[Rfam]
RNA sequence: UCUUUAGAGCGAUGAUGAGUUAUGAAAUUUCACAUGUCAGACUUCAGAGAUUUUUUGAUUAAAAAUCUAUGAGAAGAAAAUUCAUUUUUCUGAGUAGAUC
Numbered sequence: 001u002c003u004u005u006a007g008a009g010c011g012a013u014g015a016u017g018a019g020u021u022a023u024g025a026a027a028u029u030u031c032a033c034a035u036g037u038c039a040g041a042c043u044u045c046a047g048a049g050a051u052u053u054u055u056u057g058a059u060u061a062a063a064a065a066u067c068u069a070u071g072a073g074a075a076g077a078a079a080a081u082u083c084a085u086u087u088u089u090c091u092g093a094g095u096a097g098a099u100c
Stems, first nucleotide, its partner, number of pairs: 003098004049067007
Rfam assigns this 100-nucleotide RNA from Tetracentron sinense to the family "Small nucleolar RNA R64/Z200 family". NCBI's taxonomy places the organism under Eukaryota, Embryophyta, Spermatophyta, Trochodendrales, Tetracentron. Its family is annotated with RNA processing and nucleolus in the Gene Ontology.